[Rfam]
RNA sequence: GGCCCAAAUUUGAAAUCGAAUGGAUUAGGAGGAUCAUCUGACCCUACUGAACUACACUACUUCGAGUUUGUGCCC
Numbered sequence: 001g002g003c004c005c006a007a008a009u010u011u012g013a014a015a016u017c018g019a020a021u022g023g024a025u026u027a028g029g030a031g032g033a034u035c036a037u038c039u040g041a042c043c044c045u046a047c048u049g050a051a052c053u054a055c056a057c058u059a060c061u062u063c064g065a066g067u068u069u070g071u072g073c074c075c
Stems, first nucleotide, its partner, number of pairs: 001074003005070005011064004016059001018057001021054003025050004030045001032043001034041002